The record is a 109-nucleotide RNA, which matches "DUF3800-I RNA" in Rfam. Rfam's curators put it in the seed alignment. Actinobacteria, Firmicutes, Fusobacteria, Proteobacteria (1 example), Tenericutes (2 examples). It is annotated as a small RNA.
RNA sequence: ACACAUUGCAGGUAGAGAUACGCUGUAUACUCGUGGAAAUCGAAUUAACGUUUAAGCGGUAUGUGCUACCGUCGAACCACGAGCCGCCUUUUCAGGGCGUUUUUUUAUU
Numbered sequence: 001a002c003a004c005a006u007u008g009c010a011g012g013u014a015g016a017g018a019u020a021c022g023c024u025g026u027a028u029a030c031u032c033g034u035g036g037a038a039a040u041c042g043a044a045u046u047a048a049c050g051u052u053u054a055a056g057c058g059g060u061a062u063g064u065g066c067u068a069c070c071g072u073c074g075a076a077c078c079a080c081g082a083g084c085c086g087c088c089u090u091u092u093c094a095g096g097g098c099g100u101u102u103u104u105u106u107a108u109u
Stems, first nucleotide, its partner, number of pairs: 007027005012021003030083006040075003043052003056072006085099006